[Rfam]
RNA sequence: CCUCGAGGACGACCUCAAGGACGACUUCUAGGAUGACCUUGAGGACGACCUCA
Numbered sequence: 001c002c003u004c005g006a007g008g009a010c011g012a013c014c015u016c017a018a019g020g021a022c023g024a025c026u027u028c029u030a031g032g033a034u035g036a037c038c039u040u041g042a043g044g045a046c047g048a049c050c051u052c053a
Base pairs, nucleotide, nucleotide: 001020002019003018005016006015007014008013040053041052042051043050044049
RNA: Guanidine-II riboswitch aptamer (mini-ykkC)